Alphaproteobacterial sRNA BjrC1505: a 140-nucleotide sequence from Afipia sp. P52-10. Pairs were carried over by alignment from the consensus structure.
RNA sequence: AUCACUCAUUUACCGAGGAUUAAGCUUUCUCGUCCAUUACUGGAAUUGUCCAGCUUUGGACACCGAGUGGCUCCUGUCACUCUGUUUGACGCCUCCCUGUUAUCAACUUUCUAGCCGCCGGAAACGGCGGCUCUUUUUUG
Numbered sequence: 001a002u003c004a005c006u007c008a009u010u011u012a013c014c015g016a017g018g019a020u021u022a023a024g025c026u027u028u029c030u031c032g033u034c035c036a037u038u039a040c041u042g043g044a045a046u047u048g049u050c051c052a053g054c055u056u057u058g059g060a061c062a063c064c065g066a067g068u069g070g071c072u073c074c075u076g077u078c079a080c081u082c083u084g085u086u087u088g089a090c091g092c093c094u095c096c097c098u099g100u101u102a103u104c105a106a107c108u109u110u111c112u113a114g115c116c117g118c119c120g121g122a123a124a125c126g127g128c129g130g131c132u133c134u135u136u137u138u139u140g
Stems, first nucleotide, its partner, number of pairs: 002043003005015001016038002021036001024033002048061004065082005088101004113132008
The literature on the family includes a 2012 paper in RNA Biol by Madhugiri et al., "Small RNAs of the Bradyrhizobium/Rhodopseudomonas lineage and their analysis". It is annotated as a small RNA.